[Rfam]
RNA sequence: CGUCCGGGCAACUGUGCCCGGCCGCCCGUUCCGGUACCUGAUACGGCCGGAGUCGG
Numbered sequence: 001c002g003u004c005c006g007g008g009c010a011a012c013u014g015u016g017c018c019c020g021g022c023c024g025c026c027c028g029u030u031c032c033g034g035u036a037c038c039u040g041a042u043a044c045g046g047c048c049g050g051a052g053u054c055g056g
Stems, first nucleotide, its partner, number of pairs: 001024002004021006026056003029052007
Overview:
Rfam assigns this 56-nucleotide RNA from Kitasatospora kifunensis to the family "L17-Actino-Proteobacteria ribosomal protein leader". The organism belongs to Kitasatospora, within Bacteria.